[Rfam]
RNA: U4 spliceosomal RNA
RNA sequence: AGCUUUGUGCAGUGACAGUAUUAUAGCCAAGGAGGCUUAUCCAAGUUACAAUUACUGUGAAUUGAAAAUUUUUCUCACUACUUCACCGUGAUGACUUGAAAUAUAGUCAGCACUGGCAAUUUUUGACAGUCUCUACGAUGA
Numbered sequence: 001a002g003c004u005u006u007g008u009g010c011a012g013u014g015a016c017a018g019u020a021u022u023a024u025a026g027c028c029a030a031g032g033a034g035g036c037u038u039a040u041c042c043a044a045g046u047u048a049c050a051a052u053u054a055c056u057g058u059g060a061a062u063u064g065a066a067a068a069u070u071u072u073u074c075u076c077a078c079u080a081c082u083u084c085a086c087c088g089u090g091a092u093g094a095c096u097u098g099a100a101a102u103a104u105a106g107u108c109a110g111c112a113c114u115g116g117c118a119a120u121u122u123u124u125g126a127c128a129g130u131c132u133c134u135a136c137g138a139u140g141a
Stems, first nucleotide, its partner, number of pairs: 020052003024048001026047001028045001034042002086116002088113003092109005132141002